Bacillus sRNA ncr1575: a 210-nucleotide RNA from Bacillus cereus. NCBI's taxonomy places the organism under Bacteria, Bacillota, Bacilli, Bacillaceae, Bacillus cereus.

RNA sequence: UACUAACGACGGAAAGGAAUGAUGGGUGGACGAUGAUUAACUAAUCUUAUUUUUAAAUGUUGAAAUUCAAUAAAUUUCAAUUUAUAAAAAAUAGGAUUAGUCUGCCCAAUUUCCUUACAACGGUAUUGCUAUUUAUUAUGCGUAAUAGCUUAUUUGGGUAUAAAUAUGUUAACGACUAAUCCUGCCAAAUUAAUUUGGGAGGAUUUUUUU
Numbered sequence: 001u002a003c004u005a006a007c008g009a010c011g012g013a014a015a016g017g018a019a020u021g022a023u024g025g026g027u028g029g030a031c032g033a034u035g036a037u038u039a040a041c042u043a044a045u046c047u048u049a050u051u052u053u054u055a056a057a058u059g060u061u062g063a064a065a066u067u068c069a070a071u072a073a074a075u076u077u078c079a080a081u082u083u084a085u086a087a088a089a090a091a092u093a094g095g096a097u098u099a100g101u102c103u104g105c106c107c108a109a110u111u112u113c114c115u116u117a118c119a120a121c122g123g124u125a126u127u128g129c130u131a132u133u134u135a136u137u138a139u140g141c142g143u144a145a146u147a148g149c150u151u152a153u154u155u156g157g158g159u160a161u162a163a164a165u166a167u168g169u170u171a172a173c174g175a176c177u178a179a180u181c182c183u184g185c186c187a188a189a190u191u192a193a194u195u196u197g198g199g200a201g202g203a204u205u206u207u208u209u210u
Base pairs, nucleotide, nucleotide: 016114017113018112019111023108024107025106026105029102030101031100042099043098044097045096046095047094048093049092050091051090052089053088054087059081060080061079062078063077064076065075066074121156122155123154128149129148130147131146132145133144178205179204180203181202182201183200185198186197187196188195
Pairs were carried over by alignment from the consensus structure, which is taken from published work.
By type it is a small RNA.